The family of this 116-nucleotide RNA is "COG3943 RNA".
[Rfam]
RNA sequence: CACGCUCCACGCGAAUUAGAAAUAAUUUGAAUCAGAGGCCAUCCAACUGAAUCAGUGAUGAAACACCAGUAACUAUGGUUGAUAGGAAUAUCGGCAGUUAGUUACACAAUAGGUGU
Numbered sequence: 001c002a003c004g005c006u007c008c009a010c011g012c013g014a015a016u017u018a019g020a021a022a023u024a025a026u027u028u029g030a031a032u033c034a035g036a037g038g039c040c041a042u043c044c045a046a047c048u049g050a051a052u053c054a055g056u057g058a059u060g061a062a063a064c065a066c067c068a069g070u071a072a073c074u075a076u077g078g079u080u081g082a083u084a085g086g087a088a089u090a091u092c093g094g095c096a097g098u099u100a101g102u103u104a105c106a107c108a109a110u111a112g113g114u115g116u
Base pairs, nucleotide, nucleotide: 012029013028014027015026016025017024018023040060041059042058044057063116064115065114066113067112069105070104071103072102073101074100075099078095079094080093081092082091083090